Record summary
Rfam assigns this 135-nucleotide RNA sequence from Cnephaeus nilssonii to the family "Small Cajal body specific RNA 11". On this family, see Darzacq et al., EMBO J 2002: "Cajal body-specific small nuclear RNAs: a novel class of 2'-O-methylation and pseudouridylation guide RNAs". The family has 24 seed sequences and 853 matches in Rfam 15.1. By type it is a small Cajal body RNA. Rfam's curators write: scaRNAs are a specific class of small nuclear RNAs which localise to the Cajal bodies and guide the modification of RNA polymerase II transcribed spliceosomal RNAs U1, U2, U4, U5 and U12. ACA57 belongs to the H/ACA box class of guide RNAs as it has the predicted hairpin-hinge-hairpin-tail structure, conserved H/ACA-box motifs and is found associated with GAR1. ACA57 is predicted to guide the pseudouridylation of the U5 spliceosomal RNA at position U43.
[Rfam]
RNA sequence: UUGUCCCGGCCUAAGCUUUCUCUGCUCCCCUGUGCUCAGUUGUAUGGGAGUCUAGCAUAACGCACAGCAGUUCUCUCUCUGUUUAGGAGGGCCUCCCUGAGGAUAGGGCUGGCUUUUAAAGGAUGAGAAACCUGG
Numbered sequence: 001u002u003g004u005c006c007c008g009g010c011c012u013a014a015g016c017u018u019u020c021u022c023u024g025c026u027c028c029c030c031u032g033u034g035c036u037c038a039g040u041u042g043u044a045u046g047g048g049a050g051u052c053u054a055g056c057a058u059a060a061c062g063c064a065c066a067g068c069a070g071u072u073c074u075c076u077c078u079c080u081g082u083u084u085a086g087g088a089g090g091g092c093c094u095c096c097c098u099g100a101g102g103a104u105a106g107g108g109c110u111g112g113c114u115u116u117u118a119a120a121g122g123a124u125g126a127g128a129a130a131c132c133u134g135g
Base pairs, nucleotide, nucleotide: 002062003061004060008056010055024051025050026049028047029046031044032043033042074130076128077127078126079125082122083121084120087117088116089115090114091113092112093111095108096107097106098105099104